The record is an 82-nucleotide sequence from Vibrio sp. 10N.286.49.B3, which matches "RpsF leader" in Rfam. The pairing is the family consensus, mapped onto this sequence. On this family, see Babina et al., RNA 2015: "An S6:S18 complex inhibits translation of E. coli rpsF". NCBI's taxonomy places the organism under Bacteria, Pseudomonadati, Vibrionales, Vibrionaceae, Vibrio. Conserved and widely distributed to many bacterial species RNA structure. It precedes operon containing rpsF, which encodes ribosomal protein S6. The motif also precedes operon containing rpsR, which encodes ribosomal protein S18. The RNA was shown to interact with S6:S18 protein dimer in vitro. Rfam classes the family as a cis-regulatory leader.
[Rfam]
RNA sequence: GUCAUUUAUCUUUAGUUCCUUGCUUCCUCUGGACGACCGGGCCACUCGUGGAAGCUAAUAAUCCGUAAGGAGCAACCUAAUG
Numbered sequence: 001g002u003c004a005u006u007u008a009u010c011u012u013u014a015g016u017u018c019c020u021u022g023c024u025u026c027c028u029c030u031g032g033a034c035g036a037c038c039g040g041g042c043c044a045c046u047c048g049u050g051g052a053a054g055c056u057a058a059u060a061a062u063c064c065g066u067a068a069g070g071a072g073c074a075a076c077c078u079a080a081u082g
Stems, first nucleotide, its partner, number of pairs: 015073007022055006030044003